[Rfam]
RNA sequence: UAUUGUGUGAGGAGCAAAUCGAGCAAAAGAGCCUCUGGGGUCGAAACACGGCAAGACUCCCAGGGGUUUCUUUUUUGU
Numbered sequence: 001u002a003u004u005g006u007g008u009g010a011g012g013a014g015c016a017a018a019u020c021g022a023g024c025a026a027a028a029g030a031g032c033c034u035c036u037g038g039g040g041u042c043g044a045a046a047c048a049c050g051g052c053a054a055g056a057c058u059c060c061c062a063g064g065g066g067u068u069u070c071u072u073u074u075u076u077g078u
Stems, first nucleotide, its partner, number of pairs: 026073005032066002037061003040057003
RNA: Cyano-1 RNA
Organism: Leptolyngbyaceae cyanobacterium M33_DOE_097